Record summary: Plant signal recognition particle RNA: a 303-nucleotide RNA sequence from Phtheirospermum japonicum. The match comes from Rfam's covariance-model search (196 bits). On this family, see Batey et al., Science 2000: "Crystal structure of the ribonucleoprotein core of the signal recognition particle". The family's consensus secondary structure is taken from published work. The organism belongs to Phtheirospermum, within Eukaryota.

RNA sequence: GCCGAGCUUUGUAGCGAUAGAUUAUAACCCAAGUGGGGCAAUGAGUGUUGGAACUUUGGGCCUAUUCGGAGGGCAGGGCCUGAAGUAGCUCUGCAUCUAGCCCGCCUGAUCCAAGCGAGGAGUUGGGCCAUGCGACUUGGGCUGAAGCCUGGGUAAUGUGGUUCCUAGAGUGGAGGGAUGGCGCCAGGCUGGUUUAACAGAGCAGCGAUCACUUGCCGCUCCUUGCAGUGGAAGGAUAACGGGCUGGUGCUACUCUGGCCCGGUGAUGCCCAACGGGUCGGCUCUAAUUGGACCAACACUUUC
Numbered sequence: 001g002c003c004g005a006g007c008u009u010u011g012u013a014g015c016g017a018u019a020g021a022u023u024a025u026a027a028c029c030c031a032a033g034u035g036g037g038g039c040a041a042u043g044a045g046u047g048u049u050g051g052a053a054c055u056u057u058g059g060g061c062c063u064a065u066u067c068g069g070a071g072g073g074c075a076g077g078g079c080c081u082g083a084a085g086u087a088g089c090u091c092u093g094c095a096u097c098u099a100g101c102c103c104g105c106c107u108g109a110u111c112c113a114a115g116c117g118a119g120g121a122g123u124u125g126g127g128c129c130a131u132g133c134g135a136c137u138u139g140g141g142c143u144g145a146a147g148c149c150u151g152g153g154u155a156a157u158g159u160g161g162u163u164c165c166u167a168g169a170g171u172g173g174a175g176g177g178a179u180g181g182c183g184c185c186a187g188g189c190u191g192g193u194u195u196a197a198c199a200g201a202g203c204a205g206c207g208a209u210c211a212c213u214u215g216c217c218g219c220u221c222c223u224u225g226c227a228g229u230g231g232a233a234g235g236a237u238a239a240c241g242g243g244c245u246g247g248u249g250c251u252a253c254u255c256u257g258g259c260c261c262g263g264u265g266a267u268g269c270c271c272a273a274c275g276g277g278u279c280g281g282c283u284c285u286a287a288u289u290g291g292a293c294c295a296a297c298a299c300u301u302u303c
Stems, first nucleotide, its partner, number of pairs: 001039001003038001004023002007020002010017001028037003043301009054290001056287003059283004064278001066276003071271005076261005082255002085253004090249001097247008106235002110232004115226009125164008135154008165170001172216001174213002180209001182207003189200003